[Rfam]
RNA sequence: CCCGCGCAUCGUCGGUGACAACGACAGGGUGCGCGGGGUUAUACCGGUACUGUGGGAUAGCUUGAAACACCGGGCGGGGCGGCGAGGCUAGCACCCCAGAGCGACAAGGCUGGCGGGU
Numbered sequence: 001c002c003c004g005c006g007c008a009u010c011g012u013c014g015g016u017g018a019c020a021a022c023g024a025c026a027g028g029g030u031g032c033g034c035g036g037g038g039u040u041a042u043a044c045c046g047g048u049a050c051u052g053u054g055g056g057a058u059a060g061c062u063u064g065a066a067a068c069a070c071c072g073g074g075c076g077g078g079g080c081g082g083c084g085a086g087g088c089u090a091g092c093a094c095c096c097c098a099g100a101g102c103g104a105c106a107a108g109g110c111u112g113g114c115g116g117g118u
Stems, first nucleotide, its partner, number of pairs: 001037010024053004044073005060102003076097004087114006